A member of the RNA family "Small nucleolar RNA SNORA69" from Serilophus lunatus, 132 nucleotides long. A search with the family's covariance model found it, with a score of 70 bits. About the family: U69 is a member of the H/ACA class of small nucleolar RNAs (snoRNAs) which act as guides in the the modification of uridines to pseudouridines.
RNA sequence: AAAGCAGGCUGCAAUUGCAGUGCUUCCUGCUGUGGGAGCACUGCCAUGUCCCUGCUGAGAGCAACUCUGUUCACACUGUCUGUGCUUUCACCUGUACCGUGGUGAGAAUGUCUGUUGUUGACAUGGACAAGU
Numbered sequence: 001a002a003a004g005c006a007g008g009c010u011g012c013a014a015u016u017g018c019a020g021u022g023c024u025u026c027c028u029g030c031u032g033u034g035g036g037a038g039c040a041c042u043g044c045c046a047u048g049u050c051c052c053u054g055c056u057g058a059g060a061g062c063a064a065c066u067c068u069g070u071u072c073a074c075a076c077u078g079u080c081u082g083u084g085c086u087u088u089c090a091c092c093u094g095u096a097c098c099g100u101g102g103u104g105a106g107a108a109u110g111u112c113u114g115u116u117g118u119u120g121a122c123a124u125g126g127a128c129a130a131g132u
Base pairs, nucleotide, nucleotide: 003056004055005054006053007052008051018043019042020041021040022039023038024037025036026035067126068125069124070123075118076117083110084109086107087106088105089104090103091102092101